Shown here is a 57-nucleotide RNA sequence from Rhamnella rubrinervis, a member of the family "Plastid-ndhJ 3UTR RNA". A search with the family's covariance model found it, with a score of 60 bits. Rfam describes the family as follows. Plastid ndhJ is a non-coding RNA (ncRNA) present in plastids. It was identified as a short stem-loop motif in the 3 prime untranslate region (3UTR) of ndhJ gene. Rfam 15.1 lists 869 matches to the family in 155 species. Pairs were carried over by alignment from the consensus structure, which was predicted with LocARNA. The literature on the family includes a 2023 paper in Plant Commun by Richter et al., "Retrograde signaling in plants: A critical review focusing on the GUN pathway and beyond".

RNA sequence: UUCAGAAAUAUGUACCGCGCACAUCACUUAUAUGGGUUCCAGAAAGUAACAAAAAUG
Numbered sequence: 001u002u003c004a005g006a007a008a009u010a011u012g013u014a015c016c017g018c019g020c021a022c023a024u025c026a027c028u029u030a031u032a033u034g035g036g037u038u039c040c041a042g043a044a045a046g047u048a049a050c051a052a053a054a055a056u057g
Base pairs, nucleotide, nucleotide: 019037020036022034023033024032